[Rfam]
Shown here is a 75-nucleotide RNA, a member of the family "Small nucleolar RNA SNORD26". Gene Ontology terms of the family: nucleolus and RNA processing. Clan: SNORD26 clan. A reference for the family is Tycowski et al. (1996), "A mammalian gene with introns instead of exons generating stable RNA products", Nature.
RNA sequence: CUACGGGGAUGAUAUGAAAACUGAACUCUCUCUUUCUGAUGGUUUAGUGGAGAAAACAAAAAUUCUCUGAGUAGC
Numbered sequence: 001c002u003a004c005g006g007g008g009a010u011g012a013u014a015u016g017a018a019a020a021c022u023g024a025a026c027u028c029u030c031u032c033u034u035u036c037u038g039a040u041g042g043u044u045u046a047g048u049g050g051a052g053a054a055a056a057c058a059a060a061a062a063u064u065c066u067c068u069g070a071g072u073a074g075c
Stems, first nucleotide, its partner, number of pairs: 001074004